[Rfam]
RNA sequence: AGGCAACACUCCGGGACAGAUUAUUGAACUGUCUGUCACAAUUUGAGCUUGCUACAGCAAGAAAGUCGAUUCUAUUCUGGUAUUCUCUCCUCUGAGACCUGGCAGAUUAUUAACUUUAGCAUU
Dot-bracket structure: ........(((.(.(.(((((.........))))).).).....)))...............((((.((...((...((.(....((((....))))...).))...)))).)))).......